Rfam assigns this 109-nucleotide RNA from Zea mays to the family "MIR5565 microRNA precursor family". A search with the family's covariance model found it, with a score of 98 bits.
RNA sequence: ACUCUCGUAUUCACCUCAAUCCACGUGUAUUGAGGUGGAUUAUGGUGUAAAUUAGUUUAAGUUACACCCCAAUCCACCUCAAUACACAUGGAUUGAGGUGAAUACGAGA
Numbered sequence: 001a002c003u004c005u006c007g008u009a010u011u012c013a014c015c016u017c018a019a020u021c022c023a024c025g026u027g028u029a030u031u032g033a034g035g036u037g038g039a040u041u042a043u044g045g046u047g048u049a050a051a052u053u054a055g056u057u058u059a060a061g062u063u064a065c066a067c068c069c070c071a072a073u074c075c076a077c078c079u080c081a082a083u084a085c086a087c088a089u090g091g092a093u094u095g096a097g098g099u100g101a102a103u104a105c106g107a108g109a
Stems, first nucleotide, its partner, number of pairs: 004108011016096008025087008035077007045067003